[Rfam]
RNA: mir-288 microRNA precursor family
RNA sequence: GGACGCGUCGUAAUUAGCUGUGCACAGCGUUGCUGGCGAUAAUUAAUGACGUUGGUCACGUUGGUUUCAUGUCGAUUUCAUUUCAUGACACGGCCG
Numbered sequence: 001g002g003a004c005g006c007g008u009c010g011u012a013a014u015u016a017g018c019u020g021u022g023c024a025c026a027g028c029g030u031u032g033c034u035g036g037c038g039a040u041a042a043u044u045a046a047u048g049a050c051g052u053u054g055g056u057c058a059c060g061u062u063g064g065u066u067u068c069a070u071g072u073c074g075a076u077u078u079c080a081u082u083u084c085a086u087g088a089c090a091c092g093g094c095c096g
Stems, first nucleotide, its partner, number of pairs: 001095002004092001007089005016082002020078001022076001027072004032065007047058004